[Rfam]
RNA sequence: UAAAGUUAUGAGUGUAUUCCCGAUAGGAUUCACCUUAGUGAAGAUGCCUUGUAACCAAAAAGAGGGGGAAUAGUUUAAAAUG
Numbered sequence: 001u002a003a004a005g006u007u008a009u010g011a012g013u014g015u016a017u018u019c020c021c022g023a024u025a026g027g028a029u030u031c032a033c034c035u036u037a038g039u040g041a042a043g044a045u046g047c048c049u050u051g052u053a054a055c056c057a058a059a060a061a062g063a064g065g066g067g068g069a070a071u072a073g074u075u076u077a078a079a080a081u082g
Base pairs, nucleotide, nucleotide: 017070018069019068020067021066025049026048027047029042030041031040032039033038055065056064

Shown here is an 82-nucleotide RNA from Apilactobacillus ozensis, a member of the family "SAM-III riboswitch aptamer (SMK box)". The match comes from Rfam's covariance-model search (67 bits). Gene Ontology terms of the family: methionine adenosyltransferase activity and regulation of translational initiation. A reference for the family is Fuchs et al. (2007), "S-adenosylmethionine directly inhibits binding of 30S ribosomal subunits to the SMK box translational riboswitch RNA", Proc Natl Acad Sci U S A. NCBI's taxonomy places the organism under Bacteria, Bacillati, Lactobacillaceae, Apilactobacillus, Apilactobacillus ozensis.